[Rfam]
RNA sequence: CCGGCUCCUGAUUGUCCAAACGCAAUUCUCGUGGCUCCGGCCCUCGAGAGUUGGGUCUGGACAUCCCGAGCCGC
Numbered sequence: 001c002c003g004g005c006u007c008c009u010g011a012u013u014g015u016c017c018a019a020a021c022g023c024a025a026u027u028c029u030c031g032u033g034g035c036u037c038c039g040g041c042c043c044u045c046g047a048g049a050g051u052u053g054g055g056u057c058u059g060g061a062c063a064u065c066c067c068g069a070g071c072c073g074c
Stems, first nucleotide, its partner, number of pairs: 002073006010065003014062005021055001023053009

A member of the RNA family "mir-219 microRNA precursor family" from Phascolarctos cinereus, 74 nucleotides long. Taxonomically the source falls in Phascolarctos (Eukaryota, Metazoa, Mammalia, Diprotodontia). Rfam links the family to the GO terms miRNA-mediated post-transcriptional gene silencing and RISC complex. For this family Rfam cites "Vertebrate microRNA genes" (Lim et al., Science, 2003).